[Rfam]
RNA sequence: AGGUACUCCCGAGUCUCGCCACGGACCGCGGCGAUAGGGAUAACGGCUGGUUGGCACAGCCAGCGGUUCACUUGUUCGACCGUAGUGUGGGCGUUUUCGCCCCACGAGAACAGGUUGCUAACCGCGAACCCUAAUAUCCCAACUCAGCGGCGCGGUGCCGUGGGGAUUCCCGCGUCUUCAGGCGCGGGA
Numbered sequence: 001a002g003g004u005a006c007u008c009c010c011g012a013g014u015c016u017c018g019c020c021a022c023g024g025a026c027c028g029c030g031g032c033g034a035u036a037g038g039g040a041u042a043a044c045g046g047c048u049g050g051u052u053g054g055c056a057c058a059g060c061c062a063g064c065g066g067u068u069c070a071c072u073u074g075u076u077c078g079a080c081c082g083u084a085g086u087g088u089g090g091g092c093g094u095u096u097u098c099g100c101c102c103c104a105c106g107a108g109a110a111c112a113g114g115u116u117g118c119u120a121a122c123c124g125c126g127a128a129c130c131c132u133a134a135u136a137u138c139c140c141a142a143c144u145c146a147g148c149g150g151c152g153c154g155g156u157g158c159c160g161u162g163g164g165g166a167u168u169c170c171c172g173c174g175u176c177u178u179c180a181g182g183c184g185c186g187g188g189a
Base pairs, nucleotide, nucleotide: 003044004043007040008039009038010037013035014034015033016031017030018029019028045061046060047059048058049057064124065123066122067121068120069117071114072113073112074111075110076109077108090103091102093100094099137166138165139164140163142161143160168189169188170187171186172185173184174183175182176181
RNA: Sense overlapping transcript RNA 0042 (sot)